RNA sequence: GGGGCCGACUUGGUUUCGACGUGGGUUGCAAAGCAGCGCAGGGCAUACCGAGGCCUGACUACCUCGUAAAUACAAUCAGACAAGAUAUAACUGCAAACGAUAACUCGUACGCACAAGCGGCUUAAUACCCGCUUGCUCUACACUACUUCUUCCUUGGGGUAGGCUGGUAAAACAGCAGUAGAGUCAUUUACAAGGAAUCGCUUUGAAUCGGGUCACUUGGUUCGAGGCUAAAUCUAAGGUGACUCGCCUUAACGCAGCGUGCGCGUCCGCGUCGUUCGGGUUAAAUCAAAUGGCAGCGCUAAGUAUGUAGAACUGUCUGUAGAGUGCUUGCGGACGCGGGUUCGAUUCCCGCCGGCUCCACCA
Numbered sequence: 001g002g003g004g005c006c007g008a009c010u011u012g013g014u015u016u017c018g019a020c021g022u023g024g025g026u027u028g029c030a031a032a033g034c035a036g037c038g039c040a041g042g043g044c045a046u047a048c049c050g051a052g053g054c055c056u057g058a059c060u061a062c063c064u065c066g067u068a069a070a071u072a073c074a075a076u077c078a079g080a081c082a083a084g085a086u087a088u089a090a091c092u093g094c095a096a097a098c099g100a101u102a103a104c105u106c107g108u109a110c111g112c113a114c115a116a117g118c119g120g121c122u123u124a125a126u127a128c129c130c131g132c133u134u135g136c137u138c139u140a141c142a143c144u145a146c147u148u149c150u151u152c153c154u155u156g157g158g159g160u161a162g163g164c165u166g167g168u169a170a171a172a173c174a175g176c177a178g179u180a181g182a183g184u185c186a187u188u189u190a191c192a193a194g195g196a197a198u199c200g201c202u203u204u205g206a207a208u209c210g211g212g213u214c215a216c217u218u219g220g221u222u223c224g225a226g227g228c229u230a231a232a233u234c235u236a237a238g239g240u241g242a243c244u245c246g247c248c249u250u251a252a253c254g255c256a257g258c259g260u261g262c263g264c265g266u267c268c269g270c271g272u273c274g275u276u277c278g279g280g281u282u283a284a285a286u287c288a289a290a291u292g293g294c295a296g297c298g299c300u301a302a303g304u305a306u307g308u309a310g311a312a313c314u315g316u317c318u319g320u321a322g323a324g325u326g327c328u329u330g331c332g333g334a335c336g337c338g339g340g341u342u343c344g345a346u347u348c349c350c351g352c353c354g355g356c357u358c359c360a361c362c363a
Stems, first nucleotide, its partner, number of pairs: 001359007020332007033320004038316004044307005049066005055079004060074001114135007136183006143162002149159002151197001153195002155192002200228009211244006246281004251276004257270003261299004265294003336352005